Notes:
The record is a 67-nucleotide RNA sequence from Cytobacillus dafuensis, which matches "Bacillaceae-1 RNA" in Rfam. It is annotated as a small RNA. The source organism's lineage runs through Bacteria, Bacillati, Bacillota, Bacilli and Cytobacillus. The family's consensus secondary structure is taken from published work. The match comes from Rfam's covariance-model search (70 bits).

RNA sequence: CAAGAAGGAACGCGGACAAAGAACGCCACGUCCUGUAGCAAUGUCCGCAUGACCCACAUCCUGUGGG
Dot-bracket structure: ...........((((((.......((.((.....)).))...))))))....(((((.....)))))